[Rfam]
RNA sequence: UCUGGAGAGCGGCGUUUGACGCCCACCGAAGGAGCCCAGCCAGACACACAGGUUGGAUAAACUCUCAGGUCACAGGACAGA
Dot-bracket structure: ((((......((((.....)))).(((((..(((.....((((.........)))).....))))).))).......))))